[Rfam]
RNA sequence: AUACUUACCUGCUACGAGGUUCGCUGUGAUCAGGAAGGCAGCGCCUGUUUGGGAUUCUCGACAAUGCACGCCUGCUUCGAGAGCUUCAGAUUCCCUGACCUUUGGGGUCAGAGGAGGUGGAUAAUUUUUGUUUGUGGGAGGGAUCUGCGUUCGCGCUGUCCGCUCCCU
Numbered sequence: 001a002u003a004c005u006u007a008c009c010u011g012c013u014a015c016g017a018g019g020u021u022c023g024c025u026g027u028g029a030u031c032a033g034g035a036a037g038g039c040a041g042c043g044c045c046u047g048u049u050u051g052g053g054a055u056u057c058u059c060g061a062c063a064a065u066g067c068a069c070g071c072c073u074g075c076u077u078c079g080a081g082a083g084c085u086u087c088a089g090a091u092u093c094c095c096u097g098a099c100c101u102u103u104g105g106g107g108u109c110a111g112a113g114g115a116g117g118u119g120g121a122u123a124a125u126u127u128u129u130g131u132u133u134g135u136g137g138g139a140g141g142g143a144u145c146u147g148c149g150u151u152c153g154c155g156c157u158g159u160c161c162g163c164u165c166c167c168u
Stems, first nucleotide, its partner, number of pairs: 012120004017046003021043001023042005048090004053086001055083003059079003062074001092115003095111003099107002136167005147156003